[Rfam]
RNA sequence: GCAAGGAGGUCGUAGGUCAUGCAGAGUGAUGGCGGAAUAUGCUGCACUGCGUGCGACCUCCCUU
Numbered sequence: 001g002c003a004a005g006g007a008g009g010u011c012g013u014a015g016g017u018c019a020u021g022c023a024g025a026g027u028g029a030u031g032g033c034g035g036a037a038u039a040u041g042c043u044g045c046a047c048u049g050c051g052u053g054c055g056a057c058c059u060c061c062c063u064u
Stems, first nucleotide, its partner, number of pairs: 003063001005061010016050002020046004

The family of this 64-nucleotide sequence from Ornithorhynchus anatinus is "mir-1421 microRNA precursor family". Rfam 15.1 lists 110 matches to the family in 14 species. It is one of the family's seed sequences. The organism belongs to Ornithorhynchus, within Eukaryota. Pairs were carried over by alignment from the consensus structure, which was predicted with RNAalifold. Gene Ontology terms of the family: RISC complex and miRNA-mediated post-transcriptional gene silencing.